[Rfam]
RNA sequence: UUAAGUAGUGGUGCCGCUGGUAUUGUCACGGCAUAUAGCAGUUGCUCACUGCUUAACA
Numbered sequence: 001u002u003a004a005g006u007a008g009u010g011g012u013g014c015c016g017c018u019g020g021u022a023u024u025g026u027c028a029c030g031g032c033a034u035a036u037a038g039c040a041g042u043u044g045c046u047c048a049c050u051g052c053u054u055a056a057c058a
Base pairs, nucleotide, nucleotide: 002055003054004053005052006051007050008049009048010047011046013045014044016042017041018040019039021037022036023035
A member of the RNA family "microRNA mir-251 microRNA precursor family" from Caenorhabditis auriculariae, 58 nucleotides long. The literature on the family includes a 2003 paper in Genes Dev by Lim et al., "The microRNAs of Caenorhabditis elegans". Rfam 15.1 lists 14 matches to the family in 12 species. The family's consensus secondary structure was predicted with RNAalifold. The family is grouped with related families in Rfam's "mir-252 microRNA precursor family".